[Rfam]
RNA sequence: AUUACCUUUUCUUUAGCUCUUGAGUUAUAUGACUGCUUAUAUAUAUAUGUAAGCAGUCAUAUAACUCAAGAGCUAAAGAAAAGGUAAU
Numbered sequence: 001a002u003u004a005c006c007u008u009u010u011c012u013u014u015a016g017c018u019c020u021u022g023a024g025u026u027a028u029a030u031g032a033c034u035g036c037u038u039a040u041a042u043a044u045a046u047a048u049g050u051a052a053g054c055a056g057u058c059a060u061a062u063a064a065c066u067c068a069a070g071a072g073c074u075a076a077a078g079a080a081a082a083g084g085u086a087a088u
Stems, first nucleotide, its partner, number of pairs: 001088005007082020028061014

Shown here is an 88-nucleotide sequence from Orycteropus afer, a member of the family "mir-9/mir-79 microRNA precursor family". NCBI's taxonomy places the organism under Eukaryota, Bilateria, Tetrapoda, Tubulidentata, Orycteropus afer.